[Rfam]
RNA sequence: GUCCUUGUCGAUUAGUGGUUAGAUCAUCACGUUGUGGACCUUUGGCCCUUAUAAACCGUGAAGACGAAGGCUCGAAUCCUUCCUGGGACA
Numbered sequence: 001g002u003c004c005u006u007g008u009c010g011a012u013u014a015g016u017g018g019u020u021a022g023a024u025c026a027u028c029a030c031g032u033u034g035u036g037g038a039c040c041u042u043u044g045g046c047c048c049u050u051a052u053a054a055a056c057c058g059u060g061a062a063g064a065c066g067a068a069g070g071c072u073c074g075a076a077u078c079c080u081u082c083c084u085g086g087g088a089c090a
Stems, first nucleotide, its partner, number of pairs: 001089005007083001010025004027061005066082005

tRNA: a 90-nucleotide RNA sequence from Lentinus tigrinus. The family's consensus secondary structure is taken from published work. By type it is a transfer RNA.